[Rfam]
RNA sequence: AAUAACUUAUUUUUCGAGAGGUGGAAUGAUUGGGUAACGCCAAAAACGCCUCCUUUGAUACUUCGAAUAGCGUCUUUUUUUGCACAAAAAGGGGUUAUAAGCUCGAUAAAGGCGGCUGAGAGUCACCCUAACGUAUAAUGGCGAGGAAAUGCGAACCAGAGGUGGUCGAGUGAAUGAUAGGCCGGAAGUCUAAAAA
Numbered sequence: 001a002a003u004a005a006c007u008u009a010u011u012u013u014u015c016g017a018g019a020g021g022u023g024g025a026a027u028g029a030u031u032g033g034g035u036a037a038c039g040c041c042a043a044a045a046a047c048g049c050c051u052c053c054u055u056u057g058a059u060a061c062u063u064c065g066a067a068u069a070g071c072g073u074c075u076u077u078u079u080u081u082g083c084a085c086a087a088a089a090a091g092g093g094g095u096u097a098u099a100a101g102c103u104c105g106a107u108a109a110a111g112g113c114g115g116c117u118g119a120g121a122g123u124c125a126c127c128c129u130a131a132c133g134u135a136u137a138a139u140g141g142c143g144a145g146g147a148a149a150u151g152c153g154a155a156c157c158a159g160a161g162g163u164g165g166u167c168g169a170g171u172g173a174a175u176g177a178u179a180g181g182c183c184g185g186a187a188g189u190c191u192a193a194a195a196a
Stems, first nucleotide, its partner, number of pairs: 018052006031042003053188004063106004067098005073092007113184005121175001123173004127146003133142002150169001152168002155166004
RNA: Group II catalytic intron D1-D4-5